Annotation: Shown here is a 64-nucleotide RNA sequence from Paracidovorax valerianellae, a member of the family "Betaproteobacteria toxic small RNA".
RNA sequence: UGUCUCCUCCAUCUCCUCAAAGGAUGGAUUCGGCCCCGGUCUUCACAGUCCGGGGCCGUUUUUU
Numbered sequence: 001u002g003u004c005u006c007c008u009c010c011a012u013c014u015c016c017u018c019a020a021a022g023g024a025u026g027g028a029u030u031c032g033g034c035c036c037c038g039g040u041c042u043u044c045a046c047a048g049u050c051c052g053g054g055g056c057c058g059u060u061u062u063u064u
Stems, first nucleotide, its partner, number of pairs: 008028006032057008
It scores 62 bits against the family's covariance model.
Rfam's curators write: Overexpression in amino aid rich medium attenuates growth, suggesting role in repressing amino acid intake and metabolism.
The source organism's lineage runs through Bacteria, Pseudomonadati, Pseudomonadota, Comamonadaceae and Paracidovorax.
A reference for the family is Kimelman et al. (2012), "A vast collection of microbial genes that are toxic to bacteria", Genome Res.